Shown here is a 56-nucleotide RNA from Orthopestivirus bovis, a member of the family "Pestivirus 3' UTR SLI".
Pairs were carried over by alignment from the consensus structure.
NCBI's taxonomy places the organism under Viruses, Amarillovirales, Pestiviridae, Orthopestivirus bovis, Bovine viral diarrhea virus isolates and strains.
RNA sequence: AGCUGUAUGAGGAUACGCCCGACGUCUAUAGUUGGACUAGGGAAGACCUCUAACAG
Numbered sequence: 001a002g003c004u005g006u007a008u009g010a011g012g013a014u015a016c017g018c019c020c021g022a023c024g025u026c027u028a029u030a031g032u033u034g035g036a037c038u039a040g041g042g043a044a045g046a047c048c049u050c051u052a053a054c055a056g
Stems, first nucleotide, its partner, number of pairs: 003056004009050001011049002014046001018042003024037005
Dot-bracket structure: ..((((..(.((.(...(((...(((((....)))))..)))...).)))..))))
The family's RNA type in Rfam is cis-regulatory element.